RNA sequence: UUUGGGCAUAGGGAUGGUGCUCCCCUAUAACCGCCAGAAAUGGCUGAUGGCGCCUGUUAUAUA
Dot-bracket structure: .........[[[[..((((((.]]]]......((((....))))....)))))).........